Shown here is an 82-nucleotide RNA sequence from Chanos chanos, a member of the family "mir-221 microRNA precursor family". It scores 69 bits against the family's covariance model.
RNA sequence: UCCAUGGGCUGCUCAGUAGUCAGUGUAGGUCCUGUCUGUCUAUAAGCAGCUACAUCUGGCUACUGGGUCUCUUAUGGGCUCC
Numbered sequence: 001u002c003c004a005u006g007g008g009c010u011g012c013u014c015a016g017u018a019g020u021c022a023g024u025g026u027a028g029g030u031c032c033u034g035u036c037u038g039u040c041u042a043u044a045a046g047c048a049g050c051u052a053c054a055u056c057u058g059g060c061u062a063c064u065g066g067g068u069c070u071c072u073u074a075u076g077g078g079c080u081c082c
Stems, first nucleotide, its partner, number of pairs: 013066006020059003023055006032049004

A reference for the family is Yao et al. (2008), "MicroRNA profile of Marek's disease virus-transformed T-cell line MSB-1: predominance of virus-encoded microRNAs", J Virol.